[Rfam]
RNA sequence: GGGGAUGAUCGGUUUCGACAGCGAAUGUCGAAGCAGGGGAAGCGAGCCGAGGAACGCGGUAAUGAUCUCGUUAACCAUGUGCCGCAAAAAAUAAUCGCCAAUCAGAAGCGCGAUUCCUUCGCCCUCGCUGCCUAAGCAGCGAGCGUGAAGUGUCAGCCCGGGUUAGUUCCCGACCCGGUUCCUGGCAUCAGCUAGGGGACUCACCGCGUAGGUUCGGUCACGGAGCCUACCGGGACAUUUCACAGUGACUGAGCCCGUCGGAGACUUGUCCGUGUGAUCUCCGGGGCUGAGAAAAUCGCAGCGGACUGCGCUCGGAGAAGCCCUCCUUCCGCUUCGUUGGACGCGGGUUCGAUUCCCGCCAUCUCCACCA
Numbered sequence: 001g002g003g004g005a006u007g008a009u010c011g012g013u014u015u016c017g018a019c020a021g022c023g024a025a026u027g028u029c030g031a032a033g034c035a036g037g038g039g040a041a042g043c044g045a046g047c048c049g050a051g052g053a054a055c056g057c058g059g060u061a062a063u064g065a066u067c068u069c070g071u072u073a074a075c076c077a078u079g080u081g082c083c084g085c086a087a088a089a090a091a092u093a094a095u096c097g098c099c100a101a102u103c104a105g106a107a108g109c110g111c112g113a114u115u116c117c118u119u120c121g122c123c124c125u126c127g128c129u130g131c132c133u134a135a136g137c138a139g140c141g142a143g144c145g146u147g148a149a150g151u152g153u154c155a156g157c158c159c160g161g162g163u164u165a166g167u168u169c170c171c172g173a174c175c176c177g178g179u180u181c182c183u184g185g186c187a188u189c190a191g192c193u194a195g196g197g198g199a200c201u202c203a204c205c206g207c208g209u210a211g212g213u214u215c216g217g218u219c220a221c222g223g224a225g226c227c228u229a230c231c232g233g234g235a236c237a238u239u240u241c242a243c244a245g246u247g248a249c250u251g252a253g254c255c256c257g258u259c260g261g262a263g264a265c266u267u268g269u270c271c272g273u274g275u276g277a278u279c280u281c282c283g284g285g286g287c288u289g290a291g292a293a294a295a296u297c298g299c300a301g302c303g304g305a306c307u308g309c310g311c312u313c314g315g316a317g318a319a320g321c322c323c324u325c326c327u328u329c330c331g332c333u334u335c336g337u338u339g340g341a342c343g344c345g346g347g348u349u350c351g352a353u354u355c356c357c358g359c360c361a362u363c364u365c366c367a368c369c370a
Base pairs, nucleotide, nucleotide: 001366002365003364004363005362006361007360019339020338021337022336023335024334025333030329031328032327033326035324036323037322038321043314044313045312046311047310048070049069050068051067052066056085057084058083059082060081061080124143125142126141127140128139129138130137131136151187152186153185154184155183156182158178159177160176161175162174163173164172166200167199168198169197170196171195205233208230209229210228211227212226216250217249218248219247220246221245252288253287254286255285256284259283260282261281263279264278268306269305270304271303343359344358345357346356347355
RNA: transfer-messenger RNA
Organism: Streptomyces sp. AJS327